[Rfam]
Small nucleolar RNA SNORD70: a 92-nucleotide RNA sequence from Polypterus senegalus. For this family Rfam cites "RNomics: an experimental approach that identifies 201 candidates for novel, small, non-messenger RNAs in mouse" (Huttenhofer et al., EMBO J, 2001). Gene Ontology terms of the family: nucleolus and RNA processing. snoRNA HBII-234 belongs to the C/D family of snoRNAs. It is the human orthologue of the mouse MBII-234 and is predicted to guide 2'O-ribose methylation of the small 18S rRNA on position A512. It is hosted, together with HBII-95, by the core C/D box snoRNA protein encoding gene NOP5/NOP58. The organism belongs to Polypterus, within Eukaryota.
RNA sequence: UUUACUGUUGUCAAUGAUGCAUUCUGAUUGACUGACUUUCUGUGUGAGGUAUUUUUAUCAGAAUUCGUCACUACCACUGAGACAACUGCUAA
Numbered sequence: 001u002u003u004a005c006u007g008u009u010g011u012c013a014a015u016g017a018u019g020c021a022u023u024c025u026g027a028u029u030g031a032c033u034g035a036c037u038u039u040c041u042g043u044g045u046g047a048g049g050u051a052u053u054u055u056u057a058u059c060a061g062a063a064u065u066c067g068u069c070a071c072u073a074c075c076a077c078u079g080a081g082a083c084a085a086c087u088g089c090u091a092a
Stems, first nucleotide, its partner, number of pairs: 001092002005088001007086006